[Rfam]
Overview
Rfam assigns this 83-nucleotide RNA from Paenibacillus pini to the family "ZMP/ZTP riboswitch aptamer (pfl RNA motif)". The base pairs follow the family's consensus structure, which is taken from published work.
RNA sequence: CGGUUUCAGUGUAACUGGCGACAAUCGUGGAUCAAACCACAAUGGAGCACUGGAAUAUACGGCCGGUCGCCUGGGCAAAAGAG
Number, nucleotide and partner (000 for none) at each position: 001c000002g000003g056004u055005u054006u053007c052008a051009g050010u049011g048012u047013a000014a000015c044016u000017g071018g070019c069020g068021a067022c000023a000024a000025u000026c000027g040028u039029g038030g037031a000032u000033c000034a000035a000036a000037c030038c029039a028040c027041a000042a000043u000044g015045g000046a000047g012048c011049a010050c009051u008052g007053g006054a005055a004056u003057a000058u000059a000060c000061g000062g076063c075064c074065g000066g000067u021068c020069g019070c018071c017072u000073g000074g064075g063076c062077a000078a000079a000080a000081g000082a000083g000